[Rfam]
RNA sequence: UAAUGCCACCUGGUAUCUGACUUGUGGUCUUCUCUUGUGACUACAUGUCUCUGAAAUAUGGCAUAUAACAAAGGGUAAUGGGUCUUGCGACAUUGGGGGCUCCUCAAUGAGCUCCCAAUUACUAUUUAGCUGUUUACAUGU
Numbered sequence: 001u002a003a004u005g006c007c008a009c010c011u012g013g014u015a016u017c018u019g020a021c022u023u024g025u026g027g028u029c030u031u032c033u034c035u036u037g038u039g040a041c042u043a044c045a046u047g048u049c050u051c052u053g054a055a056a057u058a059u060g061g062c063a064u065a066u067a068a069c070a071a072a073g074g075g076u077a078a079u080g081g082g083u084c085u086u087g088c089g090a091c092a093u094u095g096g097g098g099g100c101u102c103c104u105c106a107a108u109g110a111g112c113u114c115c116c117a118a119u120u121a122c123u124a125u126u127u128a129g130c131u132g133u134u135u136a137c138a139u140g141u
Stems, first nucleotide, its partner, number of pairs: 004063005019049003023045007077134005092119005098113004
RNA: Small nucleolar RNA F1/F2/snoR5a